[Rfam]
RNA sequence: CUCUCGAUCACUCACUCAACCUGGGUGUGAUGCUUUUUUGAAUCAUCACAACCUCCUUGAGUGAGCGACCGCGGAU
Numbered sequence: 001c002u003c004u005c006g007a008u009c010a011c012u013c014a015c016u017c018a019a020c021c022u023g024g025g026u027g028u029g030a031u032g033c034u035u036u037u038u039u040g041a042a043u044c045a046u047c048a049c050a051a052c053c054u055c056c057u058u059g060a061g062u063g064a065g066c067g068a069c070c071g072c073g074g075a076u
Stems, first nucleotide, its partner, number of pairs: 008067001011065009023053002026050007
About this RNA:
The record is a 76-nucleotide sequence from Anopheles gambiae, which matches "mir-67 microRNA precursor family" in Rfam. Rfam links the family to the GO terms RISC complex and miRNA-mediated post-transcriptional gene silencing. Lineage of the source: Eukaryota > Neoptera > Eumetabola > Culicidae > gambiae species complex. The family's consensus secondary structure was predicted with RNAalifold.